[Rfam]
RNA sequence: ACUAACGAAAUUAAAAACACGGUCUGGUUGGUAGUCCAGACGCGGCAUUUGCCGAGAGUAUCCUGCCUCCUUGGUUGUCCAAAUUUCGUCAUUUAUUU
Dot-bracket structure: ....(((((((..........((((((........)))))).((((....))))..........(((.....))).......))))))).........
Shown here is a 98-nucleotide RNA sequence from Lactiplantibacillus mudanjiangensis, a member of the family "azaaromatic riboswitch aptamer (yjdF RNA)".